Background: A member of the RNA family "Y RNA" from Rhinopithecus roxellana, 84 nucleotides long. The source organism's lineage runs through Eukaryota, Deuterostomia, Gnathostomata, Sarcopterygii and Rhinopithecus. Rfam's curators write: Y RNAs are components of the Ro ribonucleoprotein particle (Ro RNP), in association with Ro60 and La proteins. The Y RNAs and Ro60 and La proteins are well conserved, but the function of the Ro RNP is not known. In humans the RNA component can be one of four small RNAs -- hY1, hY3, hY4 and hY5. These small RNAs are predicted to fold into a conserved secondary structure containing three stem structures.

RNA sequence: CGCUGGUCCAAGUGCAGUGGUGUUUACCAGUUCAGAUUUCUAUGUUCCUUUUCCACUCCUACUGCUUCACCUGACUAGCCUAAU
Numbered sequence: 001c002g003c004u005g006g007u008c009c010a011a012g013u014g015c016a017g018u019g020g021u022g023u024u025u026a027c028c029a030g031u032u033c034a035g036a037u038u039u040c041u042a043u044g045u046u047c048c049u050u051u052u053c054c055a056c057u058c059c060u061a062c063u064g065c066u067u068c069a070c071c072u073g074a075c076u077a078g079c080c081u082a083a084u
Stems, first nucleotide, its partner, number of pairs: 002079007010072001014068001016063005022058001029046003034041001